RNA sequence: UAGCACCGAGAUCAAGAGAGAAGUUUGUCAUCAAAUUUCUCUAGUUUGUGGAGUGCAAGAAAAAUAGUUCUACUGCCACACGGGUACUGGCCAAUAAGCUGUACUGGUUCCAAAGUUGUUCGAACAAUU
Dot-bracket structure: ..((((..........((((((((.((....)).))))))))..........))))...............(((.....((.(((((.(((......)))))))).)).....))).............
Numbered sequence: 001u002a003g004c005a006c007c008g009a010g011a012u013c014a015a016g017a018g019a020g021a022a023g024u025u026u027g028u029c030a031u032c033a034a035a036u037u038u039c040u041c042u043a044g045u046u047u048g049u050g051g052a053g054u055g056c057a058a059g060a061a062a063a064a065u066a067g068u069u070c071u072a073c074u075g076c077c078a079c080a081c082g083g084g085u086a087c088u089g090g091c092c093a094a095u096a097a098g099c100u101g102u103a104c105u106g107g108u109u110c111c112a113a114a115g116u117u118g119u120u121c122g123a124a125c126a127a128u129u
Stems, first nucleotide, its partner, number of pairs: 003056004017042008026033002072116003080108002083105005089100003